[Rfam]
RNA sequence: UCGGAUGAGGAUAGCUUUAGACAUUCUAUUUAAUUAGGAGGCCGAAGAAGCAAAUCAGAAUAGUGGCAGUUAUUCUGUGGAAACUGACAGGCAAAAGGAAGGUUAUCUGACGAGUCUUUGGAGAGAUCACUUCAGUGUGGCGCCUACGUGGAUAUAACCAACUGGCAAAGGGACAGAGAA
Numbered sequence: 001u002c003g004g005a006u007g008a009g010g011a012u013a014g015c016u017u018u019a020g021a022c023a024u025u026c027u028a029u030u031u032a033a034u035u036a037g038g039a040g041g042c043c044g045a046a047g048a049a050g051c052a053a054a055u056c057a058g059a060a061u062a063g064u065g066g067c068a069g070u071u072a073u074u075c076u077g078u079g080g081a082a083a084c085u086g087a088c089a090g091g092c093a094a095a096a097g098g099a100a101g102g103u104u105a106u107c108u109g110a111c112g113a114g115u116c117u118u119u120g121g122a123g124a125g126a127u128c129a130c131u132u133c134a135g136u137g138u139g140g141c142g143c144c145u146a147c148g149u150g151g152a153u154a155u156a157a158c159c160a161a162c163u164g165g166c167a168a169a170g171g172g173a174c175a176g177a178g179a180a
Stems, first nucleotide, its partner, number of pairs: 001113003010107008022040001024039004041092003047088001049085002056077009116178005125141001127140004142166003148162001150159002